Shown here is a 276-nucleotide RNA from Nannospalax galili, a member of the family "Mason-Pfizer monkey virus packaging signal". It is annotated as a cis-regulatory element. A search with the family's covariance model found it, with a score of 165 bits. A reference for the family is Mustafa et al. (2004), "Mutational analysis of the predicted secondary RNA structure of the Mason-Pfizer monkey virus packaging signal", Virus Res. Rfam 15.1 lists 2,921 matches to the family in 53 species. NCBI's taxonomy places the organism under Eukaryota, Sarcopterygii, Dipnotetrapodomorpha, Glires, Nannospalax.
[Rfam]
RNA sequence: UGGCGCCCAACGUGGGGAUUGGAUACUGAGGCAGCAGUGAGGGAGACUACGUGAAAAGGAAUGCGGUCGACAAAUUUUGAGACACAUCGGAGCCGCUGUGGGAACCUGCCUCGGCUGAAACCAAAAGUAAGUGGAAAUGUCCGAUCAUAGGGCAAGAAUUAAGCCAGCAUGAGCUUUAUGUUAAGCAGUUAAAGGGUGCUUUAAAGACACGGGGAGUAAAGGUUAAAACUACAGAUUUAUUUCACUUCUUUGAUUUUGUAAAGGACACUUGUCCGU
Numbered sequence: 001u002g003g004c005g006c007c008c009a010a011c012g013u014g015g016g017g018a019u020u021g022g023a024u025a026c027u028g029a030g031g032c033a034g035c036a037g038u039g040a041g042g043g044a045g046a047c048u049a050c051g052u053g054a055a056a057a058g059g060a061a062u063g064c065g066g067u068c069g070a071c072a073a074a075u076u077u078u079g080a081g082a083c084a085c086a087u088c089g090g091a092g093c094c095g096c097u098g099u100g101g102g103a104a105c106c107u108g109c110c111u112c113g114g115c116u117g118a119a120a121c122c123a124a125a126a127g128u129a130a131g132u133g134g135a136a137a138u139g140u141c142c143g144a145u146c147a148u149a150g151g152g153c154a155a156g157a158a159u160u161a162a163g164c165c166a167g168c169a170u171g172a173g174c175u176u177u178a179u180g181u182u183a184a185g186c187a188g189u190u191a192a193a194g195g196g197u198g199c200u201u202u203a204a205a206g207a208c209a210c211g212g213g214g215a216g217u218a219a220a221g222g223u224u225a226a227a228a229c230u231a232c233a234g235a236u237u238u239a240u241u242u243c244a245c246u247u248c249u250u251u252g253a254u255u256u257u258g259u260a261a262a263g264g265a266c267a268c269u270u271g272u273c274c275g276u
Stems, first nucleotide, its partner, number of pairs: 006031002012026003036048003084128002087124001094117001097113002100110002138152001140151002143148001160203003163199002210252007220238005261276001263274004